RNA sequence: GAGGUAAUCUCAAAUUGUAACAGUGGGUUGAUUUUCCUGGUGAAUCCCGGCCUUGUCUCGAAAACGUGUUCGCUAUACCCACGUUACAGAUUGGGGUUUCCCC
Numbered sequence: 001g002a003g004g005u006a007a008u009c010u011c012a013a014a015u016u017g018u019a020a021c022a023g024u025g026g027g028u029u030g031a032u033u034u035u036c037c038u039g040g041u042g043a044a045u046c047c048c049g050g051c052c053u054u055g056u057c058u059c060g061a062a063a064a065c066g067u068g069u070u071c072g073c074u075a076u077a078c079c080c081a082c083g084u085u086a087c088a089g090a091u092u093g094g095g096g097u098u099u100c101c102c103c
Base pairs, nucleotide, nucleotide: 001103003101004100006098007097008096009095010094011093012092013091015089016088017087018086019085020084021083023082024081025080026079027078028077039074040073041072042071043070044069045068
A member of the RNA family "mir-1889 microRNA precursor family" from Aedes aegypti, 103 nucleotides long. The family has 2 seed sequences and 3 matches in Rfam 15.1.